[Rfam]
RNA sequence: GCUGUAAUGUGUGCAGCUUUCAUCUGUGUCUGAUAGCAGUGUCUGUCUAUGCUUGCAUUCAGAUCUUGCUAUCCCCAUAAACAUGCAGCCAAAGAGUAAGCUGGAAUCAUAGUGUUAUUUUAUUUGAAGUAAGUUGAUUACUGAUGUGUUUUAAUGAAUAAAUGCUAAGUUUUCUAGAAUUA
Numbered sequence: 001g002c003u004g005u006a007a008u009g010u011g012u013g014c015a016g017c018u019u020u021c022a023u024c025u026g027u028g029u030c031u032g033a034u035a036g037c038a039g040u041g042u043c044u045g046u047c048u049a050u051g052c053u054u055g056c057a058u059u060c061a062g063a064u065c066u067u068g069c070u071a072u073c074c075c076c077a078u079a080a081a082c083a084u085g086c087a088g089c090c091a092a093a094g095a096g097u098a099a100g101c102u103g104g105a106a107u108c109a110u111a112g113u114g115u116u117a118u119u120u121u122a123u124u125u126g127a128a129g130u131a132a133g134u135u136g137a138u139u140a141c142u143g144a145u146g147u148g149u150u151u152u153a154a155u156g157a158a159u160a161a162a163u164g165c166u167a168a169g170u171u172u173u174c175u176a177g178a179a180u181u182a
Stems, first nucleotide, its partner, number of pairs: 013086002027079003032074001034071006041064005048057001050055001103174004115161006122155003